[Rfam]
RNA sequence: CACCGUCGUUCCUCCCACUCGGAUCGUCCGGCACGUUCCUGCCGGUGGAAAGGAAGUCGAU
Numbered sequence: 001c002a003c004c005g006u007c008g009u010u011c012c013u014c015c016c017a018c019u020c021g022g023a024u025c026g027u028c029c030g031g032c033a034c035g036u037u038c039c040u041g042c043c044g045g046u047g048g049a050a051a052g053g054a055a056g057u058c059g060a061u
Stems, first nucleotide, its partner, number of pairs: 011052001013050001015048003028045006